Description: Rfam assigns this 397-nucleotide RNA sequence from Nocardioides sp. AX2bis to the family "Bacterial RNase P class A". The source organism's lineage runs through Bacteria, Bacillati, Actinomycetota, Propionibacteriales and Nocardioides. The match comes from Rfam's covariance-model search (281 bits).
RNA sequence: CGGGUUGGCUGGGCGACCGCGUGGACCGGGAGACCGGUCCCCGAGGAAGGUCCGGGCUCCACAGGGCGAGGUGGUGGGUAACACCCACCCGGGGCAACCUGCGGGAUAGUGCCACAGAGAACAGACCGCCUCCCCGGCUCCGGCCGGGGCGGUAAGGGUGAAACGGUGGUGCAAGAGACCACCAGCGGUCCGGGUGACCGGACCGGCUCGGCAAACCCCACCUGGAGCAAGGUCAAGAAGCUGCUCUCCGGAGCAGUGCGUGCGCGUUCGAGGGCGGCCCGCCCGAGCGCACGGGUAGACCGCUGGAGGCUGUCGGCAACGGCAGCCGUAGAUGGAUGGUCGCCCCCGAGGCAGCGAUGCCGAGGGACAGAACCCGGCCUACAGGCCAGCCCGUCCG
Numbered sequence: 001c002g003g004g005u006u007g008g009c010u011g012g013g014c015g016a017c018c019g020c021g022u023g024g025a026c027c028g029g030g031a032g033a034c035c036g037g038u039c040c041c042c043g044a045g046g047a048a049g050g051u052c053c054g055g056g057c058u059c060c061a062c063a064g065g066g067c068g069a070g071g072u073g074g075u076g077g078g079u080a081a082c083a084c085c086c087a088c089c090c091g092g093g094g095c096a097a098c099c100u101g102c103g104g105g106a107u108a109g110u111g112c113c114a115c116a117g118a119g120a121a122c123a124g125a126c127c128g129c130c131u132c133c134c135c136g137g138c139u140c141c142g143g144c145c146g147g148g149g150c151g152g153u154a155a156g157g158g159u160g161a162a163a164c165g166g167u168g169g170u171g172c173a174a175g176a177g178a179c180c181a182c183c184a185g186c187g188g189u190c191c192g193g194g195u196g197a198c199c200g201g202a203c204c205g206g207c208u209c210g211g212c213a214a215a216c217c218c219c220a221c222c223u224g225g226a227g228c229a230a231g232g233u234c235a236a237g238a239a240g241c242u243g244c245u246c247u248c249c250g251g252a253g254c255a256g257u258g259c260g261u262g263c264g265c266g267u268u269c270g271a272g273g274g275c276g277g278c279c280c281g282c283c284c285g286a287g288c289g290c291a292c293g294g295g296u297a298g299a300c301c302g303c304u305g306g307a308g309g310c311u312g313u314c315g316g317c318a319a320c321g322g323c324a325g326c327c328g329u330a331g332a333u334g335g336a337u338g339g340u341c342g343c344c345c346c347c348g349a350g351g352c353a354g355c356g357a358u359g360c361c362g363a364g365g366g367a368c369a370g371a372a373c374c375c376g377g378c379c380u381a382c383a384g385g386c387c388a389g390c391c392c393g394u395c396c397g
Base pairs, nucleotide, nucleotide: 001393002392003391004390005389006388007387008386009385010384011382012344013343014342015341016340017339018338020043021042023040024039025038026037027036028035048380049379050378052377053376054375055374056373057227058226059225060224064280065279066278067277069223070222071221072220073219074088075087076086077085078084089103090101091100092099093098104218105217109216110215111212112211113210126157127156128153129152130151132149133148134147135146136145137144138143165183166182167181168180169179170178185207186205187204188203189202190201191200192199193198231301232300233299234298260292261291262290263289264288265287272284273283274282275281308327309326310325311324312323313322314321315320